[Rfam]
RNA sequence: CUGUAUCCUAGUGCAAGUAAUCAAGAAUAGGCCAACCAUAAGCUACACAGCCUAUCCUGGAUUACUUGAACCAGGUCCCAG
Numbered sequence: 001c002u003g004u005a006u007c008c009u010a011g012u013g014c015a016a017g018u019a020a021u022c023a024a025g026a027a028u029a030g031g032c033c034a035a036c037c038a039u040a041a042g043c044u045a046c047a048c049a050g051c052c053u054a055u056c057c058u059g060g061a062u063u064a065c066u067u068g069a070a071c072c073a074g075g076u077c078c079c080a081g
Stems, first nucleotide, its partner, number of pairs: 002080002007075003011071002014068009024058002027055006

Source information
mir-26 microRNA precursor family: an 81-nucleotide sequence from Chiloscyllium punctatum. For this family Rfam cites "Identification of novel genes coding for small expressed RNAs" (Lagos-Quintana et al., Science, 2001). Rfam 15.1 lists 2,251 matches to the family in 645 species. Pairs were carried over by alignment from the consensus structure, which was predicted with RNAalifold. NCBI's taxonomy places the organism under Eukaryota, Gnathostomata, Chondrichthyes, Galeoidea, Chiloscyllium.